[Rfam]
RNA sequence: ACCACUGAGCCAUCUCACCAGCCCCCAUAUAAAUACUCUUAAUUUAAAAAUUAAUUCUGGGGCUGGGGAGGUGGCUCAGUGGA
Numbered sequence: 001a002c003c004a005c006u007g008a009g010c011c012a013u014c015u016c017a018c019c020a021g022c023c024c025c026c027a028u029a030u031a032a033a034u035a036c037u038c039u040u041a042a043u044u045u046a047a048a049a050a051u052u053a054a055u056u057c058u059g060g061g062g063c064u065g066g067g068g069a070g071g072u073g074g075c076u077c078a079g080u081g082g083a
Stems, first nucleotide, its partner, number of pairs: 002082015018066007
This 83-nucleotide RNA from Octodon degus belongs to the Rfam family "mir-3473 microRNA precursor family". The source organism's lineage runs through Eukaryota, Metazoa, Deuterostomia, Dipnotetrapodomorpha and Octodon. Rfam 15.1 lists 1,094 matches to the family in 20 species. Rfam links the family to the GO terms RISC complex, miRNA-mediated post-transcriptional gene silencing and cellular response to mechanical stimulus. The base pairs follow the family's consensus structure, which was predicted with RNAalifold.